[Rfam]
The record is a 170-nucleotide RNA from Eubacterium sp. CAG:248, which matches "Clostridiales-1 RNA" in Rfam. A search with the family's covariance model found it, with a score of 126 bits. Taxonomically the source falls in Eubacterium (Bacteria, Bacillota, Eubacteriales, Eubacteriaceae). It is annotated as a small RNA.
RNA sequence: CGAUGCCAGGGUCAGAAAGUGAAAAGCCGUUCGUGCUCGCACGAAAAGGCUUUUAACCUUCUGACCCGCCCAAACAUGAGAAGGGAGCGAUUUGCAAGGCAAAUCAGCGGAGUUCGAAUGUUUGCAGAAUUGUGGGAGCAGCGAAGCUGCGGAGCAAUUCGAAGGCAUCG
Numbered sequence: 001c002g003a004u005g006c007c008a009g010g011g012u013c014a015g016a017a018a019g020u021g022a023a024a025a026g027c028c029g030u031u032c033g034u035g036c037u038c039g040c041a042c043g044a045a046a047a048g049g050c051u052u053u054u055a056a057c058c059u060u061c062u063g064a065c066c067c068g069c070c071c072a073a074a075c076a077u078g079a080g081a082a083g084g085g086a087g088c089g090a091u092u093u094g095c096a097a098g099g100c101a102a103a104u105c106a107g108c109g110g111a112g113u114u115c116g117a118a119u120g121u122u123u124g125c126a127g128a129a130u131u132g133u134g135g136g137a138g139c140a141g142c143g144a145a146g147c148u149g150c151g152g153a154g155c156a157a158u159u160c161g162a163a164g165g166c167a168u169c170g
Stems, first nucleotide, its partner, number of pairs: 001170007010066004015061003019057002022054007030046001031044005071124007080115003087108002089105007127160007138150004
Dot-bracket structure: (((((((..((((.(((.((.(((((((.((((((....))))).).))))))).)).))).))))....(((((((..(((....(((((((((...))))))).))....)))..)))))))..(((((((....((((.....))))...)))))))...)))))))